MIR7502 microRNA precursor family: a 144-nucleotide sequence from Gossypium gossypioides.
The organism belongs to Gossypium, within Eukaryota.
The family has 6 seed sequences and 74,505 matches in Rfam 15.1.
RNA sequence: UAUUUAAAAUUUCAUAAAUUUCUACUGUUAAAAAUAGGUCCUUGUAUGUUAACAUGAGAUACCAUGGCAUGCCAUAUGUCACUAUUUGGUUAUUUUGUCAACCACGCCAGUUUUUAAUAGUACAAAUGUAUGAAAUUUUUAACA
Numbered sequence: 001u002a003u004u005u006a007a008a009a010u011u012u013c014a015u016a017a018a019u020u021u022c023u024a025c026u027g028u029u030a031a032a033a034a035u036a037g038g039u040c041c042u043u044g045u046a047u048g049u050u051a052a053c054a055u056g057a058g059a060u061a062c063c064a065u066g067g068c069a070u071g072c073c074a075u076a077u078g079u080c081a082c083u084a085u086u087u088g089g090u091u092a093u094u095u096u097g098u099c100a101a102c103c104a105c106g107c108c109a110g111u112u113u114u115u116a117a118u119a120g121u122a123c124a125a126a127u128g129u130a131u132g133a134a135a136u137u138u139u140u141a142a143c144a
Stems, first nucleotide, its partner, number of pairs: 003142002006139011018127004023122004028117008